[Rfam]
RNA sequence: ACGCAGAGAGGAGGUGGUCCGAAUAAUGAUUAGUCAUGAUUGGGCUAGCGAGGUGGCUGUCCGCUAGGACAACCCGAUCCGGACCGACUCCGGGUCGGCGCGUCAGAGCGCAGAUCCAGGCAGACACCGGAACCCCGGGCAGCCGGCGGGUGCAGGGCGCAGACCCUCUCCCAUUGGUCCAGCCGGCCCGCUCAACCGAGCGGAACGCGCCCGGGGUUUCUCAAU
Numbered sequence: 001a002c003g004c005a006g007a008g009a010g011g012a013g014g015u016g017g018u019c020c021g022a023a024u025a026a027u028g029a030u031u032a033g034u035c036a037u038g039a040u041u042g043g044g045c046u047a048g049c050g051a052g053g054u055g056g057c058u059g060u061c062c063g064c065u066a067g068g069a070c071a072a073c074c075c076g077a078u079c080c081g082g083a084c085c086g087a088c089u090c091c092g093g094g095u096c097g098g099c100g101c102g103u104c105a106g107a108g109c110g111c112a113g114a115u116c117c118a119g120g121c122a123g124a125c126a127c128c129g130g131a132a133c134c135c136c137g138g139g140c141a142g143c144c145g146g147c148g149g150g151u152g153c154a155g156g157g158c159g160c161a162g163a164c165c166c167u168c169u170c171c172c173a174u175u176g177g178u179c180c181a182g183c184c185g186g187c188c189c190g191c192u193c194a195a196c197c198g199a200g201c202g203g204a205a206c207g208c209g210c211c212c213g214g215g216g217u218u219u220c221u222c223a224a225u
Stems, first nucleotide, its partner, number of pairs: 013061006062110004068104003074098003129220012142187006
The record is a 225-nucleotide RNA sequence from Herbidospora galbida, which matches "Actinobacteria sRNA Ms_IGR-5" in Rfam. Rfam classes the family as a small RNA. NCBI's taxonomy places the organism under Bacteria, Actinomycetes, Streptosporangiales, Streptosporangiaceae, Herbidospora. The base pairs follow the family's consensus structure.